[Rfam]
RNA sequence: GUGCAUUCUCAGGGCAGGGUGAAAUUCCCUACUGGUGGUAUAUGUAUAUUUACAUGAGCCCACGAGCGCUUAAUAUUUAAGGUCAGCAGAUUUGGUGUGAUGCCAAAGCCAACAGUUAAAGUCUGGAUGAAAGAGAAUAAAA
Numbered sequence: 001g002u003g004c005a006u007u008c009u010c011a012g013g014g015c016a017g018g019g020u021g022a023a024a025u026u027c028c029c030u031a032c033u034g035g036u037g038g039u040a041u042a043u044g045u046a047u048a049u050u051u052a053c054a055u056g057a058g059c060c061c062a063c064g065a066g067c068g069c070u071u072a073a074u075a076u077u078u079a080a081g082g083u084c085a086g087c088a089g090a091u092u093u094g095g096u097g098u099g100a101u102g103c104c105a106a107a108g109c110c111a112a113c114a115g116u117u118a119a120a121g122u123c124u125g126g127a128u129g130a131a132a133g134a135g136a137a138u139a140a141a142a
Stems, first nucleotide, its partner, number of pairs: 005138006017029003031122002033111002035063004058109002066087002091107005113125003
The record is a 142-nucleotide sequence from Pasteurella bettyae, which matches "FMN riboswitch aptamer (RFN element)" in Rfam. The base pairs follow the family's consensus structure, which is taken from published work.